[Rfam]
RNA sequence: UGGAGAAGUCAAUGAUGGUUAUACCCAAGAUGUCUGAACCUGUCUGAAGCAUCUCAGUGAUGCAGUCUGUGGUUCUGAGACUUCCCUACCU
Numbered sequence: 001u002g003g004a005g006a007a008g009u010c011a012a013u014g015a016u017g018g019u020u021a022u023a024c025c026c027a028a029g030a031u032g033u034c035u036g037a038a039c040c041u042g043u044c045u046g047a048a049g050c051a052u053c054u055c056a057g058u059g060a061u062g063c064a065g066u067c068u069g070u071g072g073u074u075c076u077g078a079g080a081c082u083u084c085c086c087u088a089c090c091u
Base pairs, nucleotide, nucleotide: 005084006083007082008081009080010079
RNA: Small nucleolar RNA SNORD91 family